[Rfam]
RNA sequence: UUGCAUGCUUUUCCACGGCUUUCUUGAACUUGGCACUCAAGAGACAUGAGAGUAAAGGGCUAGGCUUUCUUUUCUAUUCCUUUCGUUCUUCGAAAUUUUCUUGUUCAAAGAAUCCAUACAUAUCAGUCUCUUUAGUACAAAGCUCAAGAAAGCCGUGGGAAAAUAUGAAAG
Numbered sequence: 001u002u003g004c005a006u007g008c009u010u011u012u013c014c015a016c017g018g019c020u021u022u023c024u025u026g027a028a029c030u031u032g033g034c035a036c037u038c039a040a041g042a043g044a045c046a047u048g049a050g051a052g053u054a055a056a057g058g059g060c061u062a063g064g065c066u067u068u069c070u071u072u073u074c075u076a077u078u079c080c081u082u083u084c085g086u087u088c089u090u091c092g093a094a095a096u097u098u099u100c101u102u103g104u105u106c107a108a109a110g111a112a113u114c115c116a117u118a119c120a121u122a123u124c125a126g127u128c129u130c131u132u133u134a135g136u137a138c139a140a141a142g143c144u145c146a147a148g149a150a151a152g153c154c155g156u157g158g159g160a161a162a163a164u165a166u167g168a169a170a171g
Stems, first nucleotide, its partner, number of pairs: 004167004013158003017154006024147004029142003033138001

A member of the RNA family "MIR396 microRNA precursor family" from Populus deltoides, 171 nucleotides long. Gene Ontology terms of the family: RISC complex and miRNA-mediated post-transcriptional gene silencing. The literature on the family includes a 2004 paper in Mol Cell by Jones-Rhoades and Bartel, "Computational identification of plant microRNAs and their targets, including a stress-induced miRNA". Taxonomically the source falls in Populus (Eukaryota, Tracheophyta, eudicotyledons, Malpighiales). The match comes from Rfam's covariance-model search (83 bits).